The record is a 286-nucleotide sequence from Stutzerimonas nosocomialis, which matches "5' ureB small RNA" in Rfam. It scores 120 bits against the family's covariance model. Rfam 15.1 lists 4,812 matches to the family in 4,480 species. The family's consensus secondary structure was predicted with mfold. On this family, see Wen et al., J Bacteriol 2013: "Helicobacter pylori 5'ureB-sRNA, a cis-encoded antisense small RNA, negatively regulates ureAB expression by transcription termination". Gene Ontology term of the family: negative regulation of gene expression.
[Rfam]
Nucleotides: 286
Base pairs, nucleotide, nucleotide: 002285003284005283007281008280009279012158013157014156015155016154017153018076019075022072023071030053031052032051034050035049037048038047039046057069058068059067078147081144085140090138091137092136093135094134095130097128099125100124102123105119107117165269166268167267171259172258173257175255176254177252178251186220187219189217190216191215200209223249225247228246234244235243236242
Number, partner (000 for none) and nucleotide at each position: 001000c002285u003284u004000c005283u006000u007281c008280g009279a010000u011000c012158u013157g014156c015155u016154g017153c018076g019075g020000g021000c022072a023071g024000a025000u026000g027000a028000a029000g030053u031052g032051g033000a034050u035049g036000u037048g038047c039046g040000a041000g042000u043000c044000g045000a046039u047038g048037c049035c050034g051032c052031c053030g054000g055000c056000g057069g058068u059067g060000a061000g062000g063000a064000u065000c066000a067059u068058g069057c070000c071023u072022u073000c074000g075019c076018c077000u078147g079000c080000g081144a082000u083000c084000a085140c086000c087000u088000c089000g090138g091137u092136g093135g094134c095130g096000c097128c098000g099125c100124c101000g102123a103000u104000g105119g106000c107117g108000a109000u110000g111000g112000u113000c114000a115000c116000g117107u118000c119105c120000g121000g122000c123102u124100g125099g126000a127000u128097g129000u130095c131000c132000g133000g134094g135093u136092u137091g138090c139000c140085g141000g142000c143000c144081u145000u146000g147078c148000c149000g150000a151000u152000g153017g154016c155015g156014g157013c158012g159000a160000u161000g162000c163000g164000c165269c166268c167267g168000u169000c170000c171259u172258u173257g174000a175255g176254c177252c178251c179000c180000a181000c182000g183000u184000c185000g186220g187219c188000c189217u190216u191215g192000a193000c194000g195000a196000u197000g198000c199000c200209c201000c202000a203000g204000u205000g206000g207000u208000c209200g210000a211000u212000g213000a214000u215191c216190a217189g218000c219187g220186c221000g222000u223249u224000g225247g226000u227000g228246a229000u230000c231000a232000c233000g234244g235243u236242g237000u238000c239000g240000a241000c242236c243235a244234c245000a246228u247225c248000g249223g250000c251178g252177g253000c254176g255175c256000a257173c258172a259171g260000c261000u262000g263000g264000c265000u266000c267167u268166g269165g270000c271000c272000c273000a274000u275000g276000c277000c278000g279009u280008c281007g282000c283005g284003g285002a286000u